[Rfam]
RNA: Eukaryotic small subunit ribosomal RNA, nucleotides 1597 to 1752
Organism: Paramecium sonneborni
RNA sequence: CCGCCCGUCGCUCCUACCGAUUUCGAGUGAUGUGGUGAACUAUCUGGACUGCGAGUGGGCUCGAACCAUUUGCGGGAAGUUUCGUAAACCUUAUCACUUAGAGGAAGGAGAAGUCGUAACAAGGUUUCCGUAGGUGAACCUGCGGAAGGAUCAUUU
Numbered sequence: 001c002c003g004c005c006c007g008u009c010g011c012u013c014c015u016a017c018c019g020a021u022u023u024c025g026a027g028u029g030a031u032g033u034g035g036u037g038a039a040c041u042a043u044c045u046g047g048a049c050u051g052c053g054a055g056u057g058g059g060c061u062c063g064a065a066c067c068a069u070u071u072g073c074g075g076g077a078a079g080u081u082u083c084g085u086a087a088a089c090c091u092u093a094u095c096a097c098u099u100a101g102a103g104g105a106a107g108g109a110g111a112a113g114u115c116g117u118a119a120c121a122a123g124g125u126u127u128c129c130g131u132a133g134g135u136g137a138a139c140c141u142g143c144g145g146a147a148g149g150a151u152c153a154u155u156u
Base pairs, nucleotide, nucleotide: 001123003120006116007115009113011110012109013108014107015106017104018103021100025099026098027097028096029095030094031093032092034090035089036088039085040084042082045079049075050074051073052072053071054070055069056068057067058066125148126147127146128145129144130143131142132141133140134139